[Rfam]
RNA sequence: CUCUGCCGCUUCCCGGAUUCCGCUAGAUCAGGCAGAGGCGGGGGAACCAGAGUCCCGGGCUUUCCGCAUCAGCCCUUGGGGUGAAGCCGACACGUGAAUUUUCCGUGCGGCCGGAUGACCUCAUCCGAACCCGACAGCUAACUCCGCAGGUGUUGAGAGGCAAU
Numbered sequence: 001c002u003c004u005g006c007c008g009c010u011u012c013c014c015g016g017a018u019u020c021c022g023c024u025a026g027a028u029c030a031g032g033c034a035g036a037g038g039c040g041g042g043g044g045a046a047c048c049a050g051a052g053u054c055c056c057g058g059g060c061u062u063u064c065c066g067c068a069u070c071a072g073c074c075c076u077u078g079g080g081g082u083g084a085a086g087c088c089g090a091c092a093c094g095u096g097a098a099u100u101u102u103c104c105g106u107g108c109g110g111c112c113g114g115a116u117g118a119c120c121u122c123a124u125c126c127g128a129a130c131c132c133g134a135c136a137g138c139u140a141a142c143u144c145c146g147c148a149g150g151u152g153u154u155g156a157g158a159g160g161c162a163a164u
Stems, first nucleotide, its partner, number of pairs: 001037007038147006048078002079132003087110003113126004
A member of the RNA family "c-di-AMP riboswitch aptamer (ydaO/yuaA leader)" from Arthrobacter globiformis, 164 nucleotides long. A search with the family's covariance model found it, with a score of 61 bits. Lineage of the source: Bacteria > Bacillati > Micrococcales > Micrococcaceae > Arthrobacter globiformis.